The record is an 86-nucleotide RNA from Heterocephalus glaber, which matches "Selenocysteine transfer RNA" in Rfam. Taxonomically the source falls in Heterocephalus (Eukaryota, Opisthokonta, Vertebrata, Amniota). The match comes from Rfam's covariance-model search (58 bits). The family has 109 seed sequences and 4,211 matches in Rfam 15.1. The family is grouped with related families in Rfam's "tRNA clan". Gene Ontology term of the family: triplet codon-amino acid adaptor activity. Pairs were carried over by alignment from the consensus structure, which is taken from published work.

[Rfam]
RNA sequence: GCCUGGAUGAUCCUCAGUGGUCUGGGGUGCAGGCUUCAAACUUGUAGCUGUCUGGCAAUAAAGUGGUUCAAUUUCACCUUCUGGGC
Numbered sequence: 001g002c003c004u005g006g007a008u009g010a011u012c013c014u015c016a017g018u019g020g021u022c023u024g025g026g027g028u029g030c031a032g033g034c035u036u037c038a039a040a041c042u043u044g045u046a047g048c049u050g051u052c053u054g055g056c057a058a059u060a061a062a063g064u065g066g067u068u069c070a071a072u073u074u075c076a077c078c079u080u081c082u083g084g085g086c
Stems, first nucleotide, its partner, number of pairs: 001086007009078001012027006028046006049060003063077004